[Rfam]
RNA sequence: CCAUUAACUAUUUAAAGUUUCGUUUUGGUCCUUUAACUUACUUUUUGGUUUCAUUUUGGUUCCUUAACUUAUUUUUUUGUCCCUUAACUCUAAUACAUUCAUCCUAACAUAAACGACUAAAGUGGUUGACGGAGGAAGAGUUAAGGGACCAAAACGAAACCAAAAAGUAAGUUAAAGGACCAAAACGAAACUUUUAAUAGUUAAGGGACUAAAACGAAACCAAAAAGUAAGUUAAGGGACCAAAACGAAACUUUUAAUAGUUAAGGGA
Number, nucleotide and partner (000 for none) at each position: 001c000002c266003a000004u264005u263006a262007a261008c260009u000010a000011u000012u000013u000014a000015a000016a000017g000018u000019u000020u000021c000022g000023u245024u244025u243026u000027g241028g240029u239030c000031c237032u236033u235034u234035a233036a232037c231038u230039u229040a228041c227042u226043u225044u000045u223046u222047g221048g220049u219050u218051u217052c216053a000054u000055u000056u000057u000058g000059g000060u000061u000062c000063c000064u000065u000066a000067a000068c000069u000070u000071a000072u000073u000074u000075u000076u000077u000078u000079g000080u000081c000082c000083c000084u000085u000086a000087a000088c000089u000090c000091u000092a000093a000094u000095a000096c000097a000098u000099u000100c000101a000102u000103c000104c000105u000106a000107a000108c000109a000110u000111a000112a000113a000114c000115g000116a000117c000118u000119a000120a000121a000122g000123u000124g000125g000126u000127u000128g000129a000130c000131g000132g000133a000134g000135g000136a000137a000138g000139a000140g000141u000142u000143a000144a000145g000146g000147g000148a000149c000150c000151a000152a000153a000154a000155c000156g000157a000158a000159a000160c000161c000162a000163a000164a000165a000166a000167g000168u000169a000170a000171g000172u000173u000174a000175a000176a000177g000178g000179a000180c000181c000182a000183a000184a000185a000186c000187g000188a000189a000190a000191c000192u000193u000194u000195u000196a000197a000198u000199a000200g000201u000202u000203a000204a000205g000206g000207g000208a000209c000210u000211a000212a000213a000214a000215c000216g052217a051218a050219a049220c048221c047222a046223a045224a000225a043226a042227g041228u040229a039230a038231g037232u036233u035234a034235a033236g032237g031238g000239a029240c028241c027242a000243a025244a024245a023246c000247g000248a000249a000250a000251c000252u000253u000254u000255u000256a000257a000258u000259a000260g008261u007262u006263a005264a004265g000266g002267g000268a000
RNA: MIR2655 microRNA precursor family